The record is a 45-nucleotide sequence from Ureibacillus yapensis, which matches "PreQ1 (pre queuosine) riboswitch aptamer" in Rfam. Gene Ontology term of the family: queuosine biosynthetic process. Rfam's curators write: This family is a bacterial riboswitch that binds to the metabolite preQ1, an intermediate in the biosynthesis of the modified nucleoside queuosine from GTP. One example of this riboswitch is located in the leader of the Bacillus subtilis ykvJKLM (queCDEF) operon which encodes four genes necessary for queuosine production. It scores 55 bits against the family's covariance model. NCBI's taxonomy places the organism under Bacteria, Bacillati, Bacillota, Caryophanaceae, Ureibacillus.

RNA sequence: UUUACCGUGGUUCGAAACCCUCCCACGAAAAAAAACUAAGGAGUU
Dot-bracket structure: .....(((((.....[......))))).........]........